The record is a 53-nucleotide RNA from Aegilops tauschii, which matches "Guanidine-II riboswitch aptamer (mini-ykkC)" in Rfam.
Taxonomically the source falls in Aegilops tauschii (Eukaryota, Magnoliopsida, Petrosaviidae, Triticodae).
RNA sequence: UGCCGGGGACGGCCUCAGCAGCCCCGGCAAGACCCUUGCCGGGGACGGCCUCA
Numbered sequence: 001u002g003c004c005g006g007g008g009a010c011g012g013c014c015u016c017a018g019c020a021g022c023c024c025c026g027g028c029a030a031g032a033c034c035c036u037u038g039c040c041g042g043g044g045a046c047g048g049c050c051u052c053a
Base pairs, nucleotide, nucleotide: 001020002019003018005016006015007014008013041052042051043050044049